Shown here is a 34-nucleotide sequence from Lysinibacillus sp. BF-4, a member of the family "L31-Firmicutes ribosomal protein leader".
NCBI's taxonomy places the organism under Bacteria, Bacillati, Bacillota, Caryophanales, Lysinibacillus.
A reference for the family is Eckert and Weinberg (2020), "Discovery of 20 novel ribosomal leader candidates in bacteria and archaea", BMC Microbiol.
The sequence is in the family's curated seed alignment.
Rfam classes the family as a cis-regulatory leader.
The family's consensus secondary structure is taken from published work.
RNA sequence: CUCUGACCUAGCAAAUAGUUCAGGGCGAGAGGAG
Numbered sequence: 001c002u003c004u005g006a007c008c009u010a011g012c013a014a015a016u017a018g019u020u021c022a023g024g025g026c027g028a029g030a031g032g033a034g
Base pairs, nucleotide, nucleotide: 001025002024003023004022005021008018009017010016